The record is a 199-nucleotide RNA sequence from Oryza sativa, which matches "MIR1435 microRNA precursor family" in Rfam. NCBI's taxonomy places the organism under Eukaryota, Petrosaviidae, commelinids, Oryzeae, Oryza sativa.
RNA sequence: GAAUUUUUUUCUUAGUCAAUUUUUUUUAAGUUUGACAAGUUAAUAGAAAAAUGUAGCAAUAUUUUCAACACAAAACAAACAUAUUGUCAAAAUAUAUUCAAUGUUACAUUUAAUGAAACUUGUUUGGUAUAGUAGAUGUUGCUAAAUUUUUCUAUAAGUUUGGUCAAACCUAAACAAGUUUGACUAGGAAAAAAUUCAA
Numbered sequence: 001g002a003a004u005u006u007u008u009u010u011c012u013u014a015g016u017c018a019a020u021u022u023u024u025u026u027u028a029a030g031u032u033u034g035a036c037a038a039g040u041u042a043a044u045a046g047a048a049a050a051a052u053g054u055a056g057c058a059a060u061a062u063u064u065u066c067a068a069c070a071c072a073a074a075a076c077a078a079a080c081a082u083a084u085u086g087u088c089a090a091a092a093u094a095u096a097u098u099c100a101a102u103g104u105u106a107c108a109u110u111u112a113a114u115g116a117a118a119c120u121u122g123u124u125u126g127g128u129a130u131a132g133u134a135g136a137u138g139u140u141g142c143u144a145a146a147u148u149u150u151u152c153u154a155u156a157a158g159u160u161u162g163g164u165c166a167a168a169c170c171u172a173a174a175c176a177a178g179u180u181u182g183a184c185u186a187g188g189a190a191a192a193a194a195u196u197c198a199a
Stems, first nucleotide, its partner, number of pairs: 005194005011188009021178003025174002031168005044154008054144003058140007066132001071127001073125006